[Rfam]
RNA sequence: UCACCAGUCAGGCUCUGGCCAUAUUCCAGGACAUAGCAGAUCCUGGGUAUGACCAGAGCCCGACUGUACA
Numbered sequence: 001u002c003a004c005c006a007g008u009c010a011g012g013c014u015c016u017g018g019c020c021a022u023a024u025u026c027c028a029g030g031a032c033a034u035a036g037c038a039g040a041u042c043c044u045g046g047g048u049a050u051g052a053c054c055a056g057a058g059c060c061c062g063a064c065u066g067u068a069c070a
Stems, first nucleotide, its partner, number of pairs: 007064003011060004016055003020051004027039001029037001
Shown here is a 70-nucleotide sequence from Mesocricetus auratus, a member of the family "mir-344 microRNA precursor family". Its family is annotated with miRNA-mediated post-transcriptional gene silencing and RISC complex in the Gene Ontology. For this family Rfam cites "Small RNA expression and strain specificity in the rat" (Linsen et al., BMC Genomics, 2010). The base pairs follow the family's consensus structure, which was predicted with RNAalifold. It scores 58 bits against the family's covariance model. The family has 18 seed sequences and 339 matches in Rfam 15.1.